[Rfam]
glmS glucosamine-6-phosphate activated ribozyme aptamer: a 239-nucleotide RNA sequence from Cohnella terricola. The base pairs follow the family's consensus structure, which is taken from published work. Rfam classes the family as a riboswitch. The source organism's lineage runs through Bacteria, Bacillota, Caryophanales, Paenibacillaceae and Cohnella.
RNA sequence: AAAGCAAGACUAGCGCCAGAACUUGUCUAAACUUGGAGAAGCGGGGAAGGGCGAAGAUCAGGAACGGAAAAGCUGAUCGGAGCGAUAAACUUCAACGCAAGCAUCCAAGCCGCGGCAAGUUGACGAGGUGGAGGUGUUCGAAACGUUCGGCGGGGACCUCCCGGCUCACCAUCGGAGCCGACAAUCGGAAUGCAAAACGCUUAGGGCAACCGGGCGGACAAAAUUCCGAGACGAUGCUG
Numbered sequence: 001a002a003a004g005c006a007a008g009a010c011u012a013g014c015g016c017c018a019g020a021a022c023u024u025g026u027c028u029a030a031a032c033u034u035g036g037a038g039a040a041g042c043g044g045g046g047a048a049g050g051g052c053g054a055a056g057a058u059c060a061g062g063a064a065c066g067g068a069a070a071a072g073c074u075g076a077u078c079g080g081a082g083c084g085a086u087a088a089a090c091u092u093c094a095a096c097g098c099a100a101g102c103a104u105c106c107a108a109g110c111c112g113c114g115g116c117a118a119g120u121u122g123a124c125g126a127g128g129u130g131g132a133g134g135u136g137u138u139c140g141a142a143a144c145g146u147u148c149g150g151c152g153g154g155g156a157c158c159u160c161c162c163g164g165c166u167c168a169c170c171a172u173c174g175g176a177g178c179c180g181a182c183a184a185u186c187g188g189a190a191u192g193c194a195a196a197a198c199g200c201u202u203a204g205g206g207c208a209a210c211c212g213g214g215c216g217g218a219c220a221a222a223a224u225u226c227c228g229a230g231a232c233g234a235u236g237c238u239g
Base pairs, nucleotide, nucleotide: 020121021120022119023118024117025116026115027114130161131160132159133158134157138150139149140148141147162180163179164178165177166176167175185229186228187227188226189225190224191223198216199215200214201213202212204211205210